[Rfam]
RNA sequence: CCACGUCCCGACGCAAUCCCCCCCCGGCGCCGGGACUGCCCAGAGCCGGGCUCCGGCGCCACUCCCCCCGGGUGCCGGAGCCCGGCUCCAAC
Numbered sequence: 001c002c003a004c005g006u007c008c009c010g011a012c013g014c015a016a017u018c019c020c021c022c023c024c025c026g027g028c029g030c031c032g033g034g035a036c037u038g039c040c041c042a043g044a045g046c047c048g049g050g051c052u053c054c055g056g057c058g059c060c061a062c063u064c065c066c067c068c069c070g071g072g073u074g075c076c077g078g079a080g081c082c083c084g085g086c087u088c089c090a091a092c
Stems, first nucleotide, its partner, number of pairs: 005036006012029003043088010054077007062070001

Shown here is a 92-nucleotide sequence from Streptomyces naganishii, a member of the family "Streptomyces RNA 3202".
Rfam describes the family as follows. Identified by deep sequencing of transcriptome at the end of exponential growth phase. Appears smaller on northern blot than sequencing transcript.
Taxonomically the source falls in Streptomyces naganishii (Bacteria, Actinomycetota, Actinomycetes, Kitasatosporales).
It is annotated as a small RNA.
Pairs were carried over by alignment from the consensus structure.
A search with the family's covariance model found it, with a score of 66 bits.